This 119-nucleotide RNA sequence from Ovis aries belongs to the Rfam family "Small nucleolar RNA SNORA20". The family's RNA type in Rfam is H/ACA-box small nucleolar RNA. Gene Ontology terms of the family: nucleolus and RNA processing.

RNA sequence: CUUCCCAUUGAUUUGUUGUGACAGUUUCUCCAUGAUAUGAGCAGUUAUAUGCAUGGGGUAAAACAAUGUGCAUUGAGAUGGAGUAACCAUUUCAUCUCCUUUACAUGCUCUAGACGUUC
Numbered sequence: 001c002u003u004c005c006c007a008u009u010g011a012u013u014u015g016u017u018g019u020g021a022c023a024g025u026u027u028c029u030c031c032a033u034g035a036u037a038u039g040a041g042c043a044g045u046u047a048u049a050u051g052c053a054u055g056g057g058g059u060a061a062a063a064c065a066a067u068g069u070g071c072a073u074u075g076a077g078a079u080g081g082a083g084u085a086a087c088c089a090u091u092u093c094a095u096c097u098c099c100u101u102u103a104c105a106u107g108c109u110c111u112a113g114a115c116g117u118u119c
Stems, first nucleotide, its partner, number of pairs: 003058006015045005023036001025035002064107002067105004075098010